Annotation:
This 56-nucleotide sequence from Elstera cyanobacteriorum belongs to the Rfam family "terC RNA".

[Rfam]
RNA sequence: UCGAUAAUCCGGGCCCCUCUGACGGCUGGCCGCAGCCGUGAUGUCGGAUUUUCCCC
Numbered sequence: 001u002c003g004a005u006a007a008u009c010c011g012g013g014c015c016c017c018u019c020u021g022a023c024g025g026c027u028g029g030c031c032g033c034a035g036c037c038g039u040g041a042u043g044u045c046g047g048a049u050u051u052u053c054c055c056c
Stems, first nucleotide, its partner, number of pairs: 006050007022039007
The match comes from Rfam's covariance-model search (56 bits). Rfam classes the family as a cis-regulatory element. Pairs were carried over by alignment from the consensus structure, which is taken from published work. Taxonomically the source falls in Elstera (Bacteria, Pseudomonadota, Alphaproteobacteria, Rhodospirillales).